[Rfam]
RNA sequence: CGCUGCGUGCCCAGCUCAAAUGGCGUACUAUUCUUUCGCCUUUUACUAAAGAAUACCGUGGGCUGAGCACAAAUAAGCAGCUUGCUCCAAUUUUUGCCGGCUGUUCGCGUCUCCGAACGG
Numbered sequence: 001c002g003c004u005g006c007g008u009g010c011c012c013a014g015c016u017c018a019a020a021u022g023g024c025g026u027a028c029u030a031u032u033c034u035u036u037c038g039c040c041u042u043u044u045a046c047u048a049a050a051g052a053a054u055a056c057c058g059u060g061g062g063c064u065g066a067g068c069a070c071a072a073a074u075a076a077g078c079a080g081c082u083u084g085c086u087c088c089a090a091u092u093u094u095u096g097c098c099g100g101c102u103g104u105u106c107g108c109g110u111c112u113c114c115g116a117a118c119g120g
Stems, first nucleotide, its partner, number of pairs: 003080004008069003012065007029055008098120001102119006
Shown here is a 120-nucleotide RNA from Chara braunii, a member of the family "U5 spliceosomal RNA".
Rfam links the family to the GO terms spliceosomal tri-snRNP complex assembly and U5 snRNP.
The base pairs follow the family's consensus structure, which is taken from published work.
Rfam's curators write: U5 RNA is a component of both types of known spliceosome.